The record is a 156-nucleotide RNA sequence from Candidatus Gullanella endobia, which matches "Bacterial antisense RNA HPnc0260" in Rfam. A search with the family's covariance model found it, with a score of 64 bits. The family's consensus secondary structure was predicted with CMfinder. For this family Rfam cites "The primary transcriptome of the major human pathogen Helicobacter pylori" (Sharma et al., Nature, 2010). NCBI's taxonomy places the organism under Bacteria, Pseudomonadati, Enterobacterales, Enterobacteriaceae, Candidatus Gullanella.
[Rfam]
RNA sequence: UGUAGUAUAAUUUUUAUAUUACAUGAUAUUUAUUUAUAGAUUUUGAUAAUGUAUUAAAGUUAAAUUUAAAAAUAAAUAUUGAUAAAGAACACAAGAAAGAAAAGUUCAAGUAUUAUUUGGUGCGUCCGAGUGGAUUUGAACCACCGAUCCCCACCA
Numbered sequence: 001u002g003u004a005g006u007a008u009a010a011u012u013u014u015u016a017u018a019u020u021a022c023a024u025g026a027u028a029u030u031u032a033u034u035u036a037u038a039g040a041u042u043u044u045g046a047u048a049a050u051g052u053a054u055u056a057a058a059g060u061u062a063a064a065u066u067u068a069a070a071a072a073u074a075a076a077u078a079u080u081g082a083u084a085a086a087g088a089a090c091a092c093a094a095g096a097a098a099g100a101a102a103a104g105u106u107c108a109a110g111u112a113u114u115a116u117u118u119g120g121u122g123c124g125u126c127c128g129a130g131u132g133g134a135u136u137u138g139a140a141c142c143a144c145c146g147a148u149c150c151c152c153a154c155c156a
Base pairs, nucleotide, nucleotide: 022045023044028041029040030039031038063077065075118153119152120151122149127146128145130144131143132142133141